Shown here is a 234-nucleotide RNA sequence from a Bathymodiolus platifrons methanotrophic gill symbiont, a member of the family "Group II catalytic intron D1-D4-6". The base pairs follow the family's consensus structure. It scores 91 bits against the family's covariance model. About the family: Group II introns are found in rRNA, tRNA and mRNA of organelles in fungi, plants and protists, and also in mRNA in bacteria.

RNA sequence: AGAACCCCGCUUCAGUAAGGCAGGCCAGCCGCUGGGUAGAGAACUCUGAGUCGGCGUGGGUAAUCACAAAGAUCAAGCACAGGGGGAACAAGGCAAUAAACCGUAAGCGAAAGUUGAAGUGAUUGAGCCUCGAAAGAUUAAGAUGGGACAGGACGAUGCUGUUGACCCGGCAGAAGUCAAAAUAGGAAAGUGCGAUAAGGCAAGUGCUUUUCUACGCCCCGGGGGCCGAGAGCA
Numbered sequence: 001a002g003a004a005c006c007c008c009g010c011u012u013c014a015g016u017a018a019g020g021c022a023g024g025c026c027a028g029c030c031g032c033u034g035g036g037u038a039g040a041g042a043a044c045u046c047u048g049a050g051u052c053g054g055c056g057u058g059g060g061u062a063a064u065c066a067c068a069a070a071g072a073u074c075a076a077g078c079a080c081a082g083g084g085g086g087a088a089c090a091a092g093g094c095a096a097u098a099a100a101c102c103g104u105a106a107g108c109g110a111a112a113g114u115u116g117a118a119g120u121g122a123u124u125g126a127g128c129c130u131c132g133a134a135a136g137a138u139u140a141a142g143a144u145g146g147g148a149c150a151g152g153a154c155g156a157u158g159c160u161g162u163u164g165a166c167c168c169g170g171c172a173g174a175a176g177u178c179a180a181a182a183u184a185g186g187a188a189a190g191u192g193c194g195a196u197a198a199g200g201c202a203a204g205u206g207c208u209u210u211u212c213u214a215c216g217c218c219c220c221g222g223g224g225g226c227c228g229a230g231a232g233c234a
Base pairs, nucleotide, nucleotide: 012035013034014033015032019030020029021028024201025200037091039089044083045082047079048078050073051072052071056067057066058065059064124228125226128224129223130222131221132220146219147218149216151215152178153177154176157172158171159170160169183214184213185212186211187210188209189208190207191206192205193204